The record is a 68-nucleotide RNA sequence from Paraburkholderia sp. DHOC27, which matches "Fluoride riboswitch aptamer (crcB RNA motif)" in Rfam. It scores 51 bits against the family's covariance model. Gene Ontology terms of the family: response to fluoride and positive regulation of gene expression.
RNA sequence: UAUGUACACGGAGAUGGCAUACCUCCGAUAAACGCCAGCGUGAGUUGGCUGAUGAUGCCUACGUGGUC
Dot-bracket structure: .........[[[[..(((((..]]]].......((((((....)))))).....))))).........